[Rfam]
Small nucleolar RNA R16: an 87-nucleotide RNA sequence from Hibiscus syriacus. It is annotated as a C/D-box small nucleolar RNA.
RNA sequence: GGUGGCAAAGGAUGAAUGUUUAUCUUAUCCUACACUCUGAAAAACCGUGUGGAUCUUAAUUUCUCUUAUUGAUAUUCUGAUGCCAUU
Numbered sequence: 001g002g003u004g005g006c007a008a009a010g011g012a013u014g015a016a017u018g019u020u021u022a023u024c025u026u027a028u029c030c031u032a033c034a035c036u037c038u039g040a041a042a043a044a045c046c047g048u049g050u051g052g053a054u055c056u057u058a059a060u061u062u063c064u065c066u067u068a069u070u071g072a073u074a075u076u077c078u079g080a081u082g083c084c085a086u087u
Stems, first nucleotide, its partner, number of pairs: 003085005
Gene Ontology terms of the family: RNA processing and nucleolus. The match comes from Rfam's covariance-model search (50 bits).